[Rfam]
RNA sequence: CAUCAACCCACGGGGUGUCCUGGCGCUGUCAGGGCUGAGAGGCGGAUCGCGGCGCAUUCCAGCGUCCAGUCUGCAAACCCGCGAACCUGAUCCGGUUCAUGCCGGCGGAGGAAUAGGGACCAUGCGAAGC
Numbered sequence: 001c002a003u004c005a006a007c008c009c010a011c012g013g014g015g016u017g018u019c020c021u022g023g024c025g026c027u028g029u030c031a032g033g034g035c036u037g038a039g040a041g042g043c044g045g046a047u048c049g050c051g052g053c054g055c056a057u058u059c060c061a062g063c064g065u066c067c068a069g070u071c072u073g074c075a076a077a078c079c080c081g082c083g084a085a086c087c088u089g090a091u092c093c094g095g096u097u098c099a100u101g102c103c104g105g106c107g108g109a110g111g112a113a114u115a116g117g118g119a120c121c122a123u124g125c126g127a128a129g130c
Base pairs, nucleotide, nucleotide: 007117008116010114011081012080013079014078016075017035018034019033020032021031022030023029042074043073044072045071046070086111087110088109092105093104094103095102
Dot-bracket structure: ......((.(((((.((((((((.....)))))))......(((((.......................))))))..))))....(((...((((......))))...)))..).)).............